[Rfam]
Nucleotides: 047
Base pairs, nucleotide, nucleotide: 001020002019003018004017006015007014008013035046036045037044038043
Number, partner (000 for none) and nucleotide at each position: 001020a002019a003018g004017c005000a006015g007014g008013g009000a010000c011000g012000a013008c014007c015006c016000c017004g018003c019002u020001u021000c022000u023000a024000c025000c026000c027000u028000u029000c030000a031000c032000a033000u034000c035046g036045g037044g038043g039000a040000c041000g042000g043038c044037c045036c046035c047000a
Shown here is a 47-nucleotide RNA sequence from Azospira sp. I13, a member of the family "Guanidine-II riboswitch aptamer (mini-ykkC)". The source organism's lineage runs through Bacteria, Pseudomonadota, Betaproteobacteria, Rhodocyclaceae and Azospira. The family's consensus secondary structure is taken from published work.